RNA sequence: ACGCCAGGACGACCUGGCGUUUUUCUAUGAUCGAUCGACGGGGACGACCCUG
Numbered sequence: 001a002c003g004c005c006a007g008g009a010c011g012a013c014c015u016g017g018c019g020u021u022u023u024u025c026u027a028u029g030a031u032c033g034a035u036c037g038a039c040g041g042g043g044a045c046g047a048c049c050c051u052g
Stems, first nucleotide, its partner, number of pairs: 001020008039052005

Record summary
The family of this 52-nucleotide sequence from Vineibacter terrae is "Guanidine-II riboswitch aptamer (mini-ykkC)". The organism belongs to Vineibacter, within Bacteria. It scores 42 bits against the family's covariance model.